Rfam assigns this 195-nucleotide RNA sequence from Hafnia alvei to the family "Yersinia sRNA 276". It scores 163 bits against the family's covariance model. The organism belongs to Hafnia alvei, within Bacteria. On this family, see Nuss et al., PLoS Genet 2015: "Transcriptomic profiling of Yersinia pseudotuberculosis reveals reprogramming of the Crp regulon by temperature and uncovers Crp as a master regulator of small RNAs". Pairs were carried over by alignment from the consensus structure, which was predicted with RNAfold.
[Rfam]
RNA sequence: UACGGACAUCAACGAUUCAUUUUGUGAACCUUGGCCCACGGCGAGAUAGGCAUUCAUGCCCAGCUCUUUCAUCUGCUGUUCACCGAUAACGCGCGUGCUAACGUUCGGGCUGAAGCUAUCGGCAAGCUGACGAGCCUGCGAAGCCAAAUAGCCUGCGUUACAGAUGUUUGGCGGCAUAUUGCCAAGAUCUUUUGC
Numbered sequence: 001u002a003c004g005g006a007c008a009u010c011a012a013c014g015a016u017u018c019a020u021u022u023u024g025u026g027a028a029c030c031u032u033g034g035c036c037c038a039c040g041g042c043g044a045g046a047u048a049g050g051c052a053u054u055c056a057u058g059c060c061c062a063g064c065u066c067u068u069u070c071a072u073c074u075g076c077u078g079u080u081c082a083c084c085g086a087u088a089a090c091g092c093g094c095g096u097g098c099u100a101a102c103g104u105u106c107g108g109g110c111u112g113a114a115g116c117u118a119u120c121g122g123c124a125a126g127c128u129g130a131c132g133a134g135c136c137u138g139c140g141a142a143g144c145c146a147a148a149u150a151g152c153c154u155g156c157g158u159u160a161c162a163g164a165u166g167u168u169u170g171g172c173g174g175c176a177u178a179u180u181g182c183c184a185a186g187a188u189c190u191u192u193u194g195c
Stems, first nucleotide, its partner, number of pairs: 005189002012032001014030001016028005034042002050059002062077003078135004084129002087126001091123002095119003099112002102109001136163003140159002143156002167186006
Dot-bracket structure: ....((.....(.(.(((((...))))).).).((.....)).......((......))..(((..........)))((((..((.(...((..(((.((.(......).))....)))..))..).))..))))(((.((.((..........)).)).)))...((((((........)))))).))......